[Rfam]
The record is an 82-nucleotide RNA from Dothidotthia symphoricarpi, which matches "Small nucleolar RNA R38" in Rfam.
Lineage of the source: Eukaryota > saccharomyceta > dothideomyceta > Dothidotthiaceae > Dothidotthia symphoricarpi.
The base pairs follow the family's consensus structure, which was predicted with PFOLD.
About the family: snoR38 is a C/D box small nucleolar RNA conserved across yeast, human, Arabidopsis and rice.
The family's RNA type in Rfam is C/D-box small nucleolar RNA.

RNA sequence: UUGCAAUAUGAUGUCGAAUGUCAUUCAUUCAGUUAUCCCUGUCUGAAAACUACUGUUGAGAAAAUACUAUUCUGAUUUGCGU
Numbered sequence: 001u002u003g004c005a006a007u008a009u010g011a012u013g014u015c016g017a018a019u020g021u022c023a024u025u026c027a028u029u030c031a032g033u034u035a036u037c038c039c040u041g042u043c044u045g046a047a048a049a050c051u052a053c054u055g056u057u058g059a060g061a062a063a064a065u066a067c068u069a070u071u072c073u074g075a076u077u078u079g080c081g082u
Stems, first nucleotide, its partner, number of pairs: 002081005